Notes:
The record is a 77-nucleotide sequence from Phtheirospermum japonicum, which matches "Small nucleolar RNA Z102/R77" in Rfam. The base pairs follow the family's consensus structure, which was predicted with PFOLD. The family has 9 seed sequences and 1,346 matches in Rfam 15.1. Gene Ontology terms of the family: RNA processing and nucleolus. The source organism's lineage runs through Eukaryota, Streptophyta, Tracheophyta, Mesangiospermae and Phtheirospermum. The literature on the family includes a 2003 paper in Nucleic Acids Res by Chen et al., "The high diversity of snoRNAs in plants: identification and comparative study of 120 snoRNA genes from Oryza sativa".
[Rfam]
RNA sequence: GAAUGAAAUGACGAUAAUAAUAAUUUGAUAGCUAAGAUGAUGGCUAUUUAUCAUGUAUUAGCUCUAGCUGAUCAUUC
Numbered sequence: 001g002a003a004u005g006a007a008a009u010g011a012c013g014a015u016a017a018u019a020a021u022a023a024u025u026u027g028a029u030a031g032c033u034a035a036g037a038u039g040a041u042g043g044c045u046a047u048u049u050a051u052c053a054u055g056u057a058u059u060a061g062c063u064c065u066a067g068c069u070g071a072u073c074a075u076u077c
Base pairs, nucleotide, nucleotide: 002076003075004074005073027047030045031044032043033042